[Rfam]
RNA sequence: GAGCUAUGCAGAAACUAUCACCACCCAUCUGAAGCAGUCUGAAUGUCAGUCUGCAUGUGCAGAAAUGUGAUAUUCUGAUGGCUA
Dot-bracket structure: .(((((........................................................................))))).
A member of the RNA family "Small nucleolar RNA Z185" from Oryza sativa, 84 nucleotides long. The source organism's lineage runs through Eukaryota, Streptophyta, Mesangiospermae, Oryzeae and Oryza sativa. For this family Rfam cites "The high diversity of snoRNAs in plants: identification and comparative study of 120 snoRNA genes from Oryza sativa" (Chen et al., Nucleic Acids Res, 2003). Rfam's curators put it in the seed alignment. Gene Ontology terms of the family: RNA processing and nucleolus. By type it is a C/D-box small nucleolar RNA.